RNA sequence: AGUAUAACUUACUUUAAGAGGGUUAAGUAGCGUAAAAGGCGUUUGCUAGUAAGGAGGGGUCUUUUUCCGGCUCCUUAUAAUACUAUUAAAUUACGAGAAGUUUCUAAAGCUAGCGUUACUAAGUGGGCGCCGAACAGUAAUCCGUGGCCGGGGUAAUAACCUAGAGUAUAGUAAAAACGCGUUAGAUACUAUAAUAUAUAAUUCGUAGCUAAGCCCUAAGUCUAGGGGCCUCUCUAGAUAUAGCUGUAGUUUAACGACUAAAUAGUAGUGGGCUCCGGCGGGAACGCGUCCUACGUACCCUAUUAGGGCUUAGGAUAAAGUCUAGCCUCCCGCGAAAGCGGGAG
Numbered sequence: 001a002g003u004a005u006a007a008c009u010u011a012c013u014u015u016a017a018g019a020g021g022g023u024u025a026a027g028u029a030g031c032g033u034a035a036a037a038g039g040c041g042u043u044u045g046c047u048a049g050u051a052a053g054g055a056g057g058g059g060u061c062u063u064u065u066u067c068c069g070g071c072u073c074c075u076u077a078u079a080a081u082a083c084u085a086u087u088a089a090a091u092u093a094c095g096a097g098a099a100g101u102u103u104c105u106a107a108a109g110c111u112a113g114c115g116u117u118a119c120u121a122a123g124u125g126g127g128c129g130c131c132g133a134a135c136a137g138u139a140a141u142c143c144g145u146g147g148c149c150g151g152g153g154u155a156a157u158a159a160c161c162u163a164g165a166g167u168a169u170a171g172u173a174a175a176a177a178c179g180c181g182u183u184a185g186a187u188a189c190u191a192u193a194a195u196a197u198a199u200a201a202u203u204c205g206u207a208g209c210u211a212a213g214c215c216c217u218a219a220g221u222c223u224a225g226g227g228g229c230c231u232c233u234c235u236a237g238a239u240a241u242a243g244c245u246g247u248a249g250u251u252u253a254a255c256g257a258c259u260a261a262a263u264a265g266u267a268g269u270g271g272g273c274u275c276c277g278g279c280g281g282g283a284a285c286g287c288g289u290c291c292u293a294c295g296u297a298c299c300c301u302a303u304u305a306g307g308g309c310u311u312a313g314g315a316u317a318a319a320g321u322c323u324a325g326c327c328u329c330c331c332g333c334g335a336a337a338g339c340g341g342g343a344g
Stems, first nucleotide, its partner, number of pairs: 005025006012018002081270005087264002092207006101198001103196001105194001208250002213245001215243001221238007254323001256322004272309004329342005